Background:
mir-395 microRNA precursor family: an 85-nucleotide RNA from Triticum urartu. Rfam 15.1 lists 2,798 matches to the family in 234 species. Pairs were carried over by alignment from the consensus structure, which was predicted with PFOLD. NCBI's taxonomy places the organism under Eukaryota, Streptophyta, Spermatophyta, Triticeae, Triticum. Rfam's curators write: mir-395 was identified in both Arabidopsis thaliana and Oryza sativa computationally and was later experimentally verified. mir-395 is thought to target mRNAs coding for ATP sulphurylases. The mature sequence is excised from the 3' arm of the hairpin.
RNA sequence: GUUUUACCUUGGGUUCCUUGCAAGCACUUCAUGAGCAUUCUUUCAAAUGCCACCGUGAAGUGUUUGGGGGAACUCUUGGUGAUGC
Numbered sequence: 001g002u003u004u005u006a007c008c009u010u011g012g013g014u015u016c017c018u019u020g021c022a023a024g025c026a027c028u029u030c031a032u033g034a035g036c037a038u039u040c041u042u043u044c045a046a047a048u049g050c051c052a053c054c055g056u057g058a059a060g061u062g063u064u065u066g067g068g069g070g071a072a073c074u075c076u077u078g079g080u081g082a083u084g085c
Base pairs, nucleotide, nucleotide: 005081006080007079008078011075012074013073014072015071016070017069018068019067022065023064024063025062026061027060028059029058030057031056032055033054035051